[Rfam]
RNA sequence: UGUUAGGGGCGCUAGGGUUCCGGUCUUUGAUUUAUUAAAGACGUCUGGUCCGAGAGCGAUCCGGCCUCGUUGGAGGCUCCACGGAGGGAUAAAAGCCCGGGAGAG
Numbered sequence: 001u002g003u004u005a006g007g008g009g010c011g012c013u014a015g016g017g018u019u020c021c022g023g024u025c026u027u028u029g030a031u032u033u034a035u036u037a038a039a040g041a042c043g044u045c046u047g048g049u050c051c052g053a054g055a056g057c058g059a060u061c062c063g064g065c066c067u068c069g070u071u072g073g074a075g076g077c078u079c080c081a082c083g084g085a086g087g088g089a090u091a092a093a094a095g096c097c098c099g100g101g102a103g104a105g
Stems, first nucleotide, its partner, number of pairs: 007062003010058003015051002020048002022045001023042006063078006080100001082103001086098003
Dot-bracket structure: ......((((((..((...(((((((((........))))))..).)).))....))).)))((((((....)))))).(.[...(((.......))).)..]..
A member of the RNA family "Guanidine-I riboswitch aptamer" from Sulfuriferula plumbiphila, 105 nucleotides long.
The source organism's lineage runs through Bacteria, Pseudomonadati, Pseudomonadota, Betaproteobacteria and Sulfuriferula.
On this family, see Barrick et al., Proc Natl Acad Sci U S A 2004: "New RNA motifs suggest an expanded scope for riboswitches in bacterial genetic control".
Rfam links the family to the GO term regulation of gene expression.
Rfam's curators write: This family represents a conserved RNA structure found upstream of the ykkC and yxkD genes in Bacillus subtilis and related genes in other bacteria. The function of this family is unclear although it has been suggested that it may function to switch on efflux pumps and detoxification systems in response to harmful environmental molecules.
A search with the family's covariance model found it, with a score of 84 bits.